[Rfam]
RNA sequence: AAAACUAGCCGAGCAUACGUAGGUUGCAAGCACCGGGAGUUUAGUCCUACAC
Numbered sequence: 001a002a003a004a005c006u007a008g009c010c011g012a013g014c015a016u017a018c019g020u021a022g023g024u025u026g027c028a029a030g031c032a033c034c035g036g037g038a039g040u041u042u043a044g045u046c047c048u049a050c051a052c
Stems, first nucleotide, its partner, number of pairs: 001042003009036002013031002019050005

This 52-nucleotide sequence belongs to the Rfam family "Exoribonuclease-resistant RNA (xrRNA) plant-infecting virus (class 3)". The sequence is in the family's curated seed alignment. The base pairs follow the family's consensus structure, which is taken from published work. Rfam's curators write: Exoribonuclease-resistant RNA (xrRNA) plant-infecting virus (class 3) is a ncRNA that was reported in Plant viruses. For this family Rfam cites "The pseudoknot structure of a viral RNA reveals a conserved mechanism for programmed exoribonuclease resistance" (Gezelle et al., bioRxiv [Preprint], 2024).